A member of the RNA family "Histone 3' UTR stem-loop" from Perca fluviatilis, 46 nucleotides long. By type it is a cis-regulatory element. NCBI's taxonomy places the organism under Eukaryota, Opisthokonta, Deuterostomia, Eupercaria, Perca.
[Rfam]
RNA sequence: CCAAAGGCUCUUUUAAGAGCCACCCACUCCAUCCAAAAGAGUACAU
Numbered sequence: 001c002c003a004a005a006g007g008c009u010c011u012u013u014u015a016a017g018a019g020c021c022a023c024c025c026a027c028u029c030c031a032u033c034c035a036a037a038a039g040a041g042u043a044c045a046u
Stems, first nucleotide, its partner, number of pairs: 006021006